Shown here is a 55-nucleotide sequence from Azorhizobium caulinodans, a member of the family "terC RNA".
RNA sequence: CCGGAGGCCCGGGCCCCUCUGACGGCGCAUUCCGCCGCCAUGUCGGUCCUCUUCA
Numbered sequence: 001c002c003g004g005a006g007g008c009c010c011g012g013g014c015c016c017c018u019c020u021g022a023c024g025g026c027g028c029a030u031u032c033c034g035c036c037g038c039c040a041u042g043u044c045g046g047u048c049c050u051c052u053u054c055a
Stems, first nucleotide, its partner, number of pairs: 006049002009046004023037005